[Rfam]
RNA sequence: AUACGACACUCUGGAGAGAGACGUUAAAUCGUCCGCCGAAGGGAUAGCGAUCUCAGGCACCAUGACAGAGGGGGCAUC
Numbered sequence: 001a002u003a004c005g006a007c008a009c010u011c012u013g014g015a016g017a018g019a020g021a022c023g024u025u026a027a028a029u030c031g032u033c034c035g036c037c038g039a040a041g042g043g044a045u046a047g048c049g050a051u052c053u054c055a056g057g058c059a060c061c062a063u064g065a066c067a068g069a070g071g072g073g074g075c076a077u078c
Stems, first nucleotide, its partner, number of pairs: 007072001009070005020033004035058003038054002042052002

Source information
The record is a 78-nucleotide sequence from Rhodobacteraceae bacterium HTCC2083, which matches "Glycine riboswitch aptamer" in Rfam. From the family's description: This family represents the bacterial glycine riboswitch.